RNA sequence: GGAGCAGCUUCUGGAGAGACCAUGAAAUCGUUCAUGGCGCCGAAGGGUUCACAAUCUCAGGCAAAAGGACAGAAGAGUACUA
Numbered sequence: 001g002g003a004g005c006a007g008c009u010u011c012u013g014g015a016g017a018g019a020c021c022a023u024g025a026a027a028u029c030g031u032u033c034a035u036g037g038c039g040c041c042g043a044a045g046g047g048u049u050c051a052c053a054a055u056c057u058c059a060g061g062c063a064a065a066a067g068g069a070c071a072g073a074a075g076a077g078u079a080c081u082a
Stems, first nucleotide, its partner, number of pairs: 008075006020037004039062003042058002046056003
Shown here is an 82-nucleotide RNA from Paenibacillus sp. J45TS6, a member of the family "Glycine riboswitch aptamer".
Pairs were carried over by alignment from the consensus structure.
The organism belongs to Paenibacillus, within Bacteria.